[Rfam]
RNA sequence: GAGUCGGGAGCGCUGUCGAUUACGGUGCGUUGGGCGAUUGUUCCACCCGGCUUA
Number, nucleotide and partner (000 for none) at each position: 001g053002a052003g051004u000005c049006g048007g047008g046009a000010g028011c027012g026013c025014u024015g023016u022017c000018g000019a000020u000021u000022a016023c015024g014025g013026u012027g011028c010029g000030u000031u045032g044033g043034g041035c000036g000037a000038u000039u000040g000041u034042u000043c033044c032045a031046c008047c007048c006049g005050g000051c003052u002053u001054a000